This 72-nucleotide sequence from Aliicoccus persicus belongs to the Rfam family "tRNA".

Nucleotides: 072
Base pairs, nucleotide, nucleotide: 001071002070003069004068005067006066007065010024011023012022013021026042027041028040029039030038048064049063050062051061052060
Number, partner (000 for none) and nucleotide at each position: 001071g002070g003069u004068c005067c006066c007065a008000u009000a010024g011023c012022u013021c014000a015000g016000u017000g018000g019000g020000a021013g022012a023011g024010u025000g026042c027041u028040u029039g030038c031000u032000u033000g034000a035000c036000a037000u038030g039029c040028a041027a042026g043000a044000g045000g046000u047000c048064g049063g050062u051061g052060g053000u054000u055000c056000g057000a058000a059000a060052c061051c062050a063049c064048c065007u066006g067005g068004g069003a070002c071001c072000a
By type it is a transfer RNA. The match comes from Rfam's covariance-model search (69 bits).